[Rfam]
RNA sequence: GGGUGCCGAUCCGACAGGGCGGCAGGUGUCAGCGCUGGUCGGGCCGCCAGUG
Numbered sequence: 001g002g003g004u005g006c007c008g009a010u011c012c013g014a015c016a017g018g019g020c021g022g023c024a025g026g027u028g029u030c031a032g033c034g035c036u037g038g039u040c041g042g043g044c045c046g047c048c049a050g051u052g
Stems, first nucleotide, its partner, number of pairs: 005023004010018002033052007
Dot-bracket structure: ....((((.((.....)).)))).........(((((((......)))))))

A member of the RNA family "nhaA-I RNA" from Sphingomonas turrisvirgatae, 52 nucleotides long. NCBI's taxonomy places the organism under Bacteria, Pseudomonadota, Sphingomonadales, Sphingomonadaceae, Sphingomonas. Acidobacteria, Alphaproteobacteria, Betaproteobacteria and Gammaproteobacteria, Verrucomicrobia, cand. division NC10. It is annotated as a riboswitch.